Record summary:
Rfam assigns this 74-nucleotide RNA sequence from Takifugu rubripes to the family "mir-101 microRNA precursor family". For this family Rfam cites "miRNPs: a novel class of ribonucleoproteins containing numerous microRNAs" (Mourelatos et al., Genes Dev, 2002). Rfam links the family to the GO terms RISC complex and miRNA-mediated post-transcriptional gene silencing.
[Rfam]
RNA sequence: UGCCCUGGUUCAGUUAUCACAGUGCUGAUGCUGUCCCCAUCGAAGGUACAGUACUGUGAUAACUGAAGGAUGGC
Numbered sequence: 001u002g003c004c005c006u007g008g009u010u011c012a013g014u015u016a017u018c019a020c021a022g023u024g025c026u027g028a029u030g031c032u033g034u035c036c037c038c039a040u041c042g043a044a045g046g047u048a049c050a051g052u053a054c055u056g057u058g059a060u061a062a063c064u065g066a067a068g069g070a071u072g073g074c
Stems, first nucleotide, its partner, number of pairs: 011065015027049001029048004